[Rfam]
RNA sequence: GAAGCCGGUCAGACAGUCGCUGCCUGGUGACAGGGAGAGGAAAGUCCGGGCUCCACAGAGCAGGAUGCCGGUUAACGGCCGGCCGCCGUGAGGUGAGGAACAGGGCCACAGAGACGAGCGUAUUAAGUUACGGUGAAACGCGGUAACCUCCAUCCGGAGCAAGAUCAAAUAGGCAGAUGAUGACGCUGCUCGCUGAGUCUGCGGGUAGAUCGCUCGAGCACACGGGUAACUGUAUGCCUAGAGGAAUGACUGUCCACGACAGAACCCGGCUUAUCGGCCGGCUUCCCCA
Numbered sequence: 001g002a003a004g005c006c007g008g009u010c011a012g013a014c015a016g017u018c019g020c021u022g023c024c025u026g027g028u029g030a031c032a033g034g035g036a037g038a039g040g041a042a043a044g045u046c047c048g049g050g051c052u053c054c055a056c057a058g059a060g061c062a063g064g065a066u067g068c069c070g071g072u073u074a075a076c077g078g079c080c081g082g083c084c085g086c087c088g089u090g091a092g093g094u095g096a097g098g099a100a101c102a103g104g105g106c107c108a109c110a111g112a113g114a115c116g117a118g119c120g121u122a123u124u125a126a127g128u129u130a131c132g133g134u135g136a137a138a139c140g141c142g143g144u145a146a147c148c149u150c151c152a153u154c155c156g157g158a159g160c161a162a163g164a165u166c167a168a169a170u171a172g173g174c175a176g177a178u179g180a181u182g183a184c185g186c187u188g189c190u191c192g193c194u195g196a197g198u199c200u201g202c203g204g205g206u207a208g209a210u211c212g213c214u215c216g217a218g219c220a221c222a223c224g225g226g227u228a229a230c231u232g233u234a235u236g237c238c239u240a241g242a243g244g245a246a247u248g249a250c251u252g253u254c255c256a257c258g259a260c261a262g263a264a265c266c267c268g269g270c271u272u273a274u275c276g277g278c279c280g281g282c283u284u285c286c287c288c289a
Stems, first nucleotide, its partner, number of pairs: 001285010011274001012254007020037002023034004042272003046269005051159004058191004063155005068082005083097001084095004098150002103148002105144003119132004163211004173202006185193002218237003222233004
RNA: Bacterial RNase P class A
Organism: Nitrosomonas europaea